[Rfam]
RNA sequence: AUUGCAAGUUUGUAGGCCAUAGCAGAAGUACUUACAGCAUGGCCUGUAAGAUUUCAAUGAAUCUACACAUUCUGCU
Numbered sequence: 001a002u003u004g005c006a007a008g009u010u011u012g013u014a015g016g017c018c019a020u021a022g023c024a025g026a027a028g029u030a031c032u033u034a035c036a037g038c039a040u041g042g043c044c045u046g047u048a049a050g051a052u053u054u055c056a057a058u059g060a061a062u063c064u065a066c067a068c069a070u071u072c073u074g075c076u
Stems, first nucleotide, its partner, number of pairs: 015044004021076007028040002049064006
Record summary
Shown here is a 76-nucleotide sequence from Alligator mississippiensis, a member of the family "Mammalian CPEB3 ribozyme". A search with the family's covariance model found it, with a score of 41 bits. The base pairs follow the family's consensus structure, which is taken from published work.